[Rfam]
RNA sequence: UGUUGCAACAACCCCGUGGAUUGGGUGGCGAGGCCAGGGAAGGGCCGGAGCCACAGUGAACCCACUGCAACA
Numbered sequence: 001u002g003u004u005g006c007a008a009c010a011a012c013c014c015c016g017u018g019g020a021u022u023g024g025g026u027g028g029c030g031a032g033g034c035c036a037g038g039g040a041a042g043g044g045c046c047g048g049a050g051c052c053a054c055a056g057u058g059a060a061c062c063c064a065c066u067g068c069a070a071c072a
Base pairs, nucleotide, nucleotide: 001072002071003070004069005068006067007066013058014056016065017064018063019062021060022059023057025054026053027052028051029050032046033045034044035043